The family of this 89-nucleotide RNA sequence from Asparagus officinalis is "Small nucleolar RNA snoR26".

RNA sequence: UAGGCAUCUGUGAUGACUUCAUUUUAGUUAUCCUUGCACUAUGAUUUUCUAUGAAGAUACUAUUGGGGAAGAUAUAGUCUGAGAUGCCU
Numbered sequence: 001u002a003g004g005c006a007u008c009u010g011u012g013a014u015g016a017c018u019u020c021a022u023u024u025u026a027g028u029u030a031u032c033c034u035u036g037c038a039c040u041a042u043g044a045u046u047u048u049c050u051a052u053g054a055a056g057a058u059a060c061u062a063u064u065g066g067g068g069a070a071g072a073u074a075u076a077g078u079c080u081g082a083g084a085u086g087c088c089u
Base pairs, nucleotide, nucleotide: 002089003088004087005086006085007084008083
Rfam classes the family as a C/D-box small nucleolar RNA.
The match comes from Rfam's covariance-model search (81 bits).
NCBI's taxonomy places the organism under Eukaryota, Viridiplantae, Streptophytina, Embryophyta, Asparagus.